Acido-Lenti-1 RNA: a 46-nucleotide sequence from Lentisphaera araneosa. A search with the family's covariance model found it, with a score of 45 bits. Lineage of the source: Bacteria > Pseudomonadati > Lentisphaeria > Lentisphaerales > Lentisphaera araneosa. The family's consensus secondary structure is taken from published work.
[Rfam]
RNA sequence: CCUAGCACUGACGUACUAGGCUGAUAUAUGCCGUAACUUCGGUACU
Dot-bracket structure: (((((.((....)).)))))............(((.(...).))).
Numbered sequence: 001c002c003u004a005g006c007a008c009u010g011a012c013g014u015a016c017u018a019g020g021c022u023g024a025u026a027u028a029u030g031c032c033g034u035a036a037c038u039u040c041g042g043u044a045c046u
Stems, first nucleotide, its partner, number of pairs: 001020005007014002033045003037041001